[Rfam]
RNA sequence: AAGGCUUCAUCAUAUUGUUUAUUGUAAGCUUUCAGCUUUAGACUGCUUUUAAUCAGCUAGUGCUGUUGUUAGUGAAGCCAAAAUUAGUCGUUUCCCUCGCUAUCCAAUGCCUGCGACUGUGUUGCAUUUGGACGUCGGGAAACUAUAUUC
Numbered sequence: 001a002a003g004g005c006u007u008c009a010u011c012a013u014a015u016u017g018u019u020u021a022u023u024g025u026a027a028g029c030u031u032u033c034a035g036c037u038u039u040a041g042a043c044u045g046c047u048u049u050u051a052a053u054c055a056g057c058u059a060g061u062g063c064u065g066u067u068g069u070u071a072g073u074g075a076a077g078c079c080a081a082a083a084u085u086a087g088u089c090g091u092u093u094c095c096c097u098c099g100c101u102a103u104c105c106a107a108u109g110c111c112u113g114c115g116a117c118u119g120u121g122u123u124g125c126a127u128u129u130g131g132a133c134g135u136c137g138g139g140a141a142a143c144u145a146u147a148u149u150c
Stems, first nucleotide, its partner, number of pairs: 003079003008074002022071001025068002033065004038060002042058001043056002090143007098134002103132005113122003
RNA: Small nucleolar RNA snoR136
Organism: Ricinus communis